[Rfam]
RNA: 6S / SsrS RNA
RNA sequence: GACACCCUGCAGUGUUCGAGGUGCUUUCCAAAAACAGCUCUUUGCCUUGAAACUAUUACGGGAGCCGAACCCGCCGCGGAAGAUGCUAGGCCGUAAAUCGGAAAGCAGACGCUGCGGAGGAGGCGCCCACCUAAACGUAAAAAGGUCUCGAGCCUUUGGGCAUACGGCACAGGCGGGGUGUUA
Numbered sequence: 001g002a003c004a005c006c007c008u009g010c011a012g013u014g015u016u017c018g019a020g021g022u023g024c025u026u027u028c029c030a031a032a033a034a035c036a037g038c039u040c041u042u043u044g045c046c047u048u049g050a051a052a053c054u055a056u057u058a059c060g061g062g063a064g065c066c067g068a069a070c071c072c073g074c075c076g077c078g079g080a081a082g083a084u085g086c087u088a089g090g091c092c093g094u095a096a097a098u099c100g101g102a103a104a105g106c107a108g109a110c111g112c113u114g115c116g117g118a119g120g121a122g123g124c125g126c127c128c129a130c131c132u133a134a135a136c137g138u139a140a141a142a143a144g145g146u147c148u149c150g151a152g153c154c155u156u157u158g159g160g161c162a163u164a165c166g167g168c169a170c171a172g173g174c175g176g177g178g179u180g181u182u183a
Stems, first nucleotide, its partner, number of pairs: 002181009012170004017166002037153004044146003060128003064124003074117006086105002091101003